Notes: Shown here is a 63-nucleotide RNA from Clostridium autoethanogenum, a member of the family "RAGATH-18 RNA". The family's consensus secondary structure is taken from published work. It is one of the family's seed sequences. About the family: Actinobacteria, Firmicutes, Fusobacteria, Thermotogae (1 example).
[Rfam]
RNA sequence: UCCCUGGAGUGUGUGACCAAGCGAAAGUAGCUUAUAGCAAAAUCGGGCACUAUGAAUGGGAAA
Numbered sequence: 001u002c003c004c005u006g007g008a009g010u011g012u013g014u015g016a017c018c019a020a021g022c023g024a025a026a027g028u029a030g031c032u033u034a035u036a037g038c039a040a041a042a043u044c045g046g047g048c049a050c051u052a053u054g055a056a057u058g059g060g061a062a063a
Base pairs, nucleotide, nucleotide: 001061002060003059004058009050010049011048012047022045023044024043030038031037032036